The family of this 74-nucleotide RNA from Sphingomonas kaistensis is "terC RNA".
A search with the family's covariance model found it, with a score of 47 bits.
Rfam classes the family as a cis-regulatory element.
Pairs were carried over by alignment from the consensus structure, which is taken from published work.
RNA sequence: CCCGCGGACCGGGCCCCUCUGGCGCCCCCUGCAUGCCCCCAGCGGCUGCAGGAGCGUGAUGUCGGACCGCACGC
Numbered sequence: 001c002c003c004g005c006g007g008a009c010c011g012g013g014c015c016c017c018u019c020u021g022g023c024g025c026c027c028c029c030u031g032c033a034u035g036c037c038c039c040c041a042g043c044g045g046c047u048g049c050a051g052g053a054g055c056g057u058g059a060u061g062u063c064g065g066a067c068c069g070c071a072c073g074c
Stems, first nucleotide, its partner, number of pairs: 006068002009065004022057004027052002